Plastid-ccsA-ndhD-2 3UTR RNA: a 52-nucleotide sequence from Mollugo verticillata. The family's RNA type in Rfam is cis-regulatory element. For this family Rfam cites "Surprising features of plastid ndhD transcripts: addition of non-encoded nucleotides and polysome association of mRNAs with an unedited start codon" (Zandueta-Criado and Bock, Nucleic Acids Res, 2004). Rfam describes the family as follows. Plastid ccsA-ndhD-2 is a non-coding RNA (ncRNA) recognised in plastids.

RNA sequence: UUGCUAGAACCAUUUAAAUCAAAUACUGUAGUGAUUUAAAUGGUUCUCUUAU
Numbered sequence: 001u002u003g004c005u006a007g008a009a010c011c012a013u014u015u016a017a018a019u020c021a022a023a024u025a026c027u028g029u030a031g032u033g034a035u036u037u038a039a040a041u042g043g044u045u046c047u048c049u050u051a052u
Base pairs, nucleotide, nucleotide: 003050006047007046008045009044010043011042012041013040014039015038016037017036018035019034020033021032